[Rfam]
RNA: Acido-Lenti-1 RNA
RNA sequence: CCCCGGAUUCACAUCCGGGGCUACCUUGUGCCGCCCCUAGCGGGGCU
Numbered sequence: 001c002c003c004c005g006g007a008u009u010c011a012c013a014u015c016c017g018g019g020g021c022u023a024c025c026u027u028g029u030g031c032c033g034c035c036c037c038u039a040g041c042g043g044g045g046c047u
Stems, first nucleotide, its partner, number of pairs: 001020008033046005